[Rfam]
RNA sequence: GCCCUGUGGUUGCUGGAUGCUGUUGUGCAGGUACAGCUAUCCAGUGGAUACAAUGGGCUAUAGUAUUCCUGUGAUUUAUGCAUGGGGCUGUUUAUUCUCAGCAGCUGCCAUAGCCCGGUCACUGGUACAUGG
Numbered sequence: 001g002c003c004c005u006g007u008g009g010u011u012g013c014u015g016g017a018u019g020c021u022g023u024u025g026u027g028c029a030g031g032u033a034c035a036g037c038u039a040u041c042c043a044g045u046g047g048a049u050a051c052a053a054u055g056g057g058c059u060a061u062a063g064u065a066u067u068c069c070u071g072u073g074a075u076u077u078a079u080g081c082a083u084g085g086g087g088c089u090g091u092u093u094a095u096u097c098u099c100a101g102c103a104g105c106u107g108c109c110a111u112a113g114c115c116c117g118g119u120c121a122c123u124g125g126u127a128c129a130u131g132g
Base pairs, nucleotide, nucleotide: 001058002057003056004055007050008049010047011046012045013044014043015042016041017040019037020036021035022034023033069124071122072121073120074119075118076117080114081113082111083110084109085108087106088104089103090102091101092100